[Rfam]
RNA sequence: GCGGUGCAGUGUGCGCAGUGUCAGUCUGUGUCUGGUGGAGCGGUGUGUCAGUGUACUGCUGGCUCCCUGCUCCACUCACACAAAUCCCGCCGCCAGAGAUAAAUGUGAGAUCAUAGUACUGGUCUAGUGACGUCUUCUGGACACCCCAACCGCUGGCCAGCCUCCAAAUUCUCUCACAUCU
Numbered sequence: 001g002c003g004g005u006g007c008a009g010u011g012u013g014c015g016c017a018g019u020g021u022c023a024g025u026c027u028g029u030g031u032c033u034g035g036u037g038g039a040g041c042g043g044u045g046u047g048u049c050a051g052u053g054u055a056c057u058g059c060u061g062g063c064u065c066c067c068u069g070c071u072c073c074a075c076u077c078a079c080a081c082a083a084a085u086c087c088c089g090c091c092g093c094c095a096g097a098g099a100u101a102a103a104u105g106u107g108a109g110a111u112c113a114u115a116g117u118a119c120u121g122g123u124c125u126a127g128u129g130a131c132g133u134c135u136u137c138u139g140g141a142c143a144c145c146c147c148a149a150c151c152g153c154u155g156g157c158c159a160g161c162c163u164c165c166a167a168a169u170u171c172u173c174u175c176a177c178a179u180c181u
Stems, first nucleotide, its partner, number of pairs: 013090003029082003033078003036074006043067001045065001047063001050060003107173004119160006126154004132144002135141002
Dot-bracket structure: ............(((.............(((.(((((((((.(.(.(..(((.....)))..).).).)))))).))).))).....)))................((((........((((((.((((..((.((...)).))......)))))))))).........))))........

A member of the RNA family "Small nucleolar RNA SNORA23" from Aquarana catesbeiana, 181 nucleotides long. On this family, see Huttenhofer et al., EMBO J 2001: "RNomics: an experimental approach that identifies 201 candidates for novel, small, non-messenger RNAs in mouse". The members of this family belong to the H/ACA class of snoRNAs which are thought to guide the sites of modification of uridines to pseudouridines. This family includes human snoRNA ACA23 (SNORA23) and mouse snoMBI-1. ACA23 is predicted to guide the pseudouridylation of residue U3737 and U4331 of 28S rRNA. Its family is annotated with RNA processing and nucleolus in the Gene Ontology.